The record is a 110-nucleotide RNA sequence, which matches "6S-Flavo RNA" in Rfam.
The sequence is in the family's curated seed alignment.
It is annotated as a small RNA.
RNA sequence: ACUCAACACUAAUUCAAUUAAAAGAGGUGAGUUUAAGUUGCAAAAGCAAGCCGCCACCGAGUGGAUCCUUGAACAAUUUGGUAGCCUCAAACCUGUUUAUUUCAGAGUUU
Numbered sequence: 001a002c003u004c005a006a007c008a009c010u011a012a013u014u015c016a017a018u019u020a021a022a023a024g025a026g027g028u029g030a031g032u033u034u035a036a037g038u039u040g041c042a043a044a045a046g047c048a049a050g051c052c053g054c055c056a057c058c059g060a061g062u063g064g065a066u067c068c069u070u071g072a073a074c075a076a077u078u079u080g081g082u083a084g085c086c087u088c089a090a091a092c093c094u095g096u097u098u099a100u101u102u103c104a105g106a107g108u109u110u
Stems, first nucleotide, its partner, number of pairs: 024088005035079005044070003051064004